[Rfam]
RNA: Actinomyces-1 RNA
Organism: Actinomyces urogenitalis
RNA sequence: ACUGCCGCCGGACGGAACGGGUCGCGAGGGUUGGGGAGCCUGAUGACCGACCCGCCUCCGAGACAGCCACGGGUCUUAGGGAGCCCGAAGCCGUCGCUCCGGCGAGGGAG
Numbered sequence: 001a002c003u004g005c006c007g008c009c010g011g012a013c014g015g016a017a018c019g020g021g022u023c024g025c026g027a028g029g030g031u032u033g034g035g036g037a038g039c040c041u042g043a044u045g046a047c048c049g050a051c052c053c054g055c056c057u058c059c060g061a062g063a064c065a066g067c068c069a070c071g072g073g074u075c076u077u078a079g080g081g082a083g084c085c086c087g088a089a090g091c092c093g094u095c096g097c098u099c100c101g102g103c104g105a106g107g108g109a110g
Stems, first nucleotide, its partner, number of pairs: 006104007013060004018054007028041005062095003066091002070087005